[Rfam]
RNA: SAM riboswitch aptamer (S box leader)
RNA sequence: UCACCAUCGAGACCGGCGGAGGGACAGGCCCUUUGAUGCCGGGGCAGCCAGCGACGCGCAAGCGCCGUGGUAGGUGCCAAAUCCUGCGGGGAUUUCGCUUUUUCCAGAAGCGAGCGUCCGCCGAAAGAUGGUUC
Numbered sequence: 001u002c003a004c005c006a007u008c009g010a011g012a013c014c015g016g017c018g019g020a021g022g023g024a025c026a027g028g029c030c031c032u033u034u035g036a037u038g039c040c041g042g043g044g045c046a047g048c049c050a051g052c053g054a055c056g057c058g059c060a061a062g063c064g065c066c067g068u069g070g071u072a073g074g075u076g077c078c079a080a081a082u083c084c085u086g087c088g089g090g091g092a093u094u095u096c097g098c099u100u101u102u103u104c105c106a107g108a109a110g111c112g113a114g115c116g117u118c119c120g121c122c123g124a125a126a127g128a129u130g131g132u133u134c
Base pairs, nucleotide, nucleotide: 003132004131005130006129007128008127013042014041015040016039017038021031022030023029025086026085027084028083043078044077045076046075048074049073050071052069053068082126087123088122089121091119